[Rfam]
Nucleotides: 089
Stems, first nucleotide, its partner, number of pairs: 001089006008082007016074009027063003
Number, partner (000 for none) and nucleotide at each position: 001089u002088u003087a004086u005085g006084c007000c008082u009081g010080g011079c012078u013077c014076c015000u016074u017073g018072u019071a020070u021069g022068c023067c024066a025000u026000a027063g028062g029061u030000a031000g032000g033000a034000a035000c036000c037000a038000a039000c040000c041000c042000a043000a044000a045000u046000g047000u048000u049000g050000a051000u052000u053000g054000g055000u056000u057000u058000c059000u060000u061029g062028c063027c064000c065000a066024u067023g068022g069021c070020g071019u072018g073017c074016a075000a076014g077013g078012a079011g080010c081009c082008a083000a084006g085005c086004a087003u088002g089001a
The family of this 89-nucleotide sequence from Ziziphus jujuba is "mir-160 microRNA precursor family". NCBI's taxonomy places the organism under Eukaryota, Embryophyta, Euphyllophyta, fabids, Ziziphus jujuba. The match comes from Rfam's covariance-model search (75 bits). The family's consensus secondary structure was predicted with PFOLD.